[Rfam]
RNA sequence: UCAAAGGCUUUUUUCAAAGCCACCCAUACACCAAAGAAUCAAUUU
Numbered sequence: 001u002c003a004a005a006g007g008c009u010u011u012u013u014u015c016a017a018a019g020c021c022a023c024c025c026a027u028a029c030a031c032c033a034a035a036g037a038a039u040c041a042a043u044u045u
Stems, first nucleotide, its partner, number of pairs: 006021006
Dot-bracket structure: .....((((((....))))))........................

Description
Histone 3' UTR stem-loop: a 45-nucleotide RNA from Heterostelium album. The mRNAs of metazoan histone genes lack a poly-A tail. 3' end processing occurs at a site between a highly conserved stem-loop (modelled by this family) and a purine rich region around 20 nts downstream (the histone downstream element, or HDE). The base pairs follow the family's consensus structure, which is taken from published work.